[Rfam]
RNA sequence: UCCUCUGGAUGAUGAGAAACCAUGAAAUGUACAGUUAUCCCUGGCUGAUUCCAAGUGCUGAUAUUUCAAACUCUGACAGUGUA
Numbered sequence: 001u002c003c004u005c006u007g008g009a010u011g012a013u014g015a016g017a018a019a020c021c022a023u024g025a026a027a028u029g030u031a032c033a034g035u036u037a038u039c040c041c042u043g044g045c046u047g048a049u050u051c052c053a054a055g056u057g058c059u060g061a062u063a064u065u066u067c068a069a070a071c072u073c074u075g076a077c078a079g080u081g082u083a
Stems, first nucleotide, its partner, number of pairs: 001083001003081001005079003
The family of this 83-nucleotide RNA sequence from Cucumis melo is "Small nucleolar RNA R38". Gene Ontology terms of the family: RNA processing and nucleolus. About the family: snoR38 is a C/D box small nucleolar RNA conserved across yeast, human, Arabidopsis and rice. It is encoded in the intron of elongation factor-1 gamma in both pombe and cerevisiae. snoR38 guides the methylation of 2'-O-ribose sites in 28S rRNA.